GP20-b RNA: a 59-nucleotide RNA sequence from Clostridium sp. KNHs216. Lineage of the source: Bacteria > Bacillota > Clostridia > Clostridiaceae > Clostridium. By type it is a cis-regulatory element.
RNA sequence: CGCCGACUGCGGGCGUAAUCGGCAGAGCGGCGCGAGGCGCGACCUCGUAAAAAAGCGUA
Numbered sequence: 001c002g003c004c005g006a007c008u009g010c011g012g013g014c015g016u017a018a019u020c021g022g023c024a025g026a027g028c029g030g031c032g033c034g035a036g037g038c039g040c041g042a043c044c045u046c047g048u049a050a051a052a053a054a055g056c057g058u059a
Stems, first nucleotide, its partner, number of pairs: 001015004007025004033047004